RT-15 RNA: a 202-nucleotide RNA from Paramagnetospirillum magneticum.
It is annotated as a small RNA.
RNA sequence: CCGUGCCUGAUGCUCGAAGGUCAAGGCCUUCCGGCCUGCGCACAUCAUUUGGUCGGGGUAGCGGCGGCGUCGAUGCAAUUGGUCGUCGCUCCAGGCGCCAUCGUGGAUACGGCGGGUGCUCCCCCGCGCGUCCCGGCGCAGCUCGGCCGGCGUCGAUGCCUUCGGCAAUCGCCGGCCCGGCCUGUACACCCCCGACAGAUCC
Numbered sequence: 001c002c003g004u005g006c007c008u009g010a011u012g013c014u015c016g017a018a019g020g021u022c023a024a025g026g027c028c029u030u031c032c033g034g035c036c037u038g039c040g041c042a043c044a045u046c047a048u049u050u051g052g053u054c055g056g057g058g059u060a061g062c063g064g065c066g067g068c069g070u071c072g073a074u075g076c077a078a079u080u081g082g083u084c085g086u087c088g089c090u091c092c093a094g095g096c097g098c099c100a101u102c103g104u105g106g107a108u109a110c111g112g113c114g115g116g117u118g119c120u121c122c123c124c125c126g127c128g129c130g131u132c133c134c135g136g137c138g139c140a141g142c143u144c145g146g147c148c149g150g151c152g153u154c155g156a157u158g159c160c161u162u163c164g165g166c167a168a169u170c171g172c173c174g175g176c177c178c179g180g181c182c183u184g185u186a187c188a189c190c191c192c193c194g195a196c197a198g199a200u201c202c
Stems, first nucleotide, its partner, number of pairs: 004042003012035003016031006053195006062088007095139004105133003110130002113126004142180002145177008158166003